[Rfam]
The record is a 61-nucleotide sequence from Ceratodon purpureus, which matches "Plastid-psbN 5UTR RNA" in Rfam. Rfam's curators write: Plastid psbN is a non-coding RNA (ncRNA) recognised in plastids. It was reported as a conserved 11 stem-loop in the prime untranslated region (5UTR) of psbN genes. It has been reported that the motif is retained in a subset of mature transcripts in barley, which can suggests a possible role in transcript alternative 5 prime processing. The base pairs follow the family's consensus structure, which was predicted with LocARNA. A search with the family's covariance model found it, with a score of 61 bits. The organism belongs to Ceratodon, within Eukaryota.

RNA sequence: UGCAAUGUCCAUUAAAGGUGUUGUGCCCAAUCCAGGAGCAACUUUACCAUAUUUUGAGUUA
Numbered sequence: 001u002g003c004a005a006u007g008u009c010c011a012u013u014a015a016a017g018g019u020g021u022u023g024u025g026c027c028c029a030a031u032c033c034a035g036g037a038g039c040a041a042c043u044u045u046a047c048c049a050u051a052u053u054u055u056g057a058g059u060u061a
Stems, first nucleotide, its partner, number of pairs: 017045002020042005026036002